MIR5387 microRNA precursor family: a 94-nucleotide RNA sequence from Sorghum bicolor. NCBI's taxonomy places the organism under Eukaryota, Embryophyta, Tracheophyta, Liliopsida, Sorghum. The match comes from Rfam's covariance-model search (72 bits).

RNA sequence: UUGUAACACGAACCGGUGCUAAAGGGUUCCUACUCUGACAGCAACUGUCAGUAGCCGUUGGGCAGGACCCUUUAGCACCGGUUCGUUCUUUAAC
Numbered sequence: 001u002u003g004u005a006a007c008a009c010g011a012a013c014c015g016g017u018g019c020u021a022a023a024g025g026g027u028u029c030c031u032a033c034u035c036u037g038a039c040a041g042c043a044a045c046u047g048u049c050a051g052u053a054g055c056c057g058u059u060g061g062g063c064a065g066g067a068c069c070c071u072u073u074a075g076c077a078c079c080g081g082u083u084c085g086u087u088c089u090u091u092a093a094c
Base pairs, nucleotide, nucleotide: 003091005089008086009085010084011083012082013081014080015079016078017077018076019075020074021073022072023071024070025069026068027067029066030065034061035060038058039057045051046050

Rfam 15.1 lists 1,029 matches to the family in 9 species. The base pairs follow the family's consensus structure, which was predicted with RNAalifold.